[Rfam]
RNA sequence: GGGAAGUGAUGAGUGGUCAAUACUUGCAUUUAAAUAUGCAAGUUGGGGUGUCCGCCCAAAGCCUGUUACGACAAUUGGGCACCUCCUAUUUAAACCAUCUGAUCCC
Numbered sequence: 001g002g003g004a005a006g007u008g009a010u011g012a013g014u015g016g017u018c019a020a021u022a023c024u025u026g027c028a029u030u031u032a033a034a035u036a037u038g039c040a041a042g043u044u045g046g047g048g049u050g051u052c053c054g055c056c057c058a059a060a061g062c063c064u065g066u067u068a069c070g071a072c073a074a075u076u077g078g079g080c081a082c083c084u085c086c087u088a089u090u091u092a093a094a095c096c097a098u099c100u101g102a103u104c105c106c
Stems, first nucleotide, its partner, number of pairs: 001106004014097004023042005045085008063077001065075002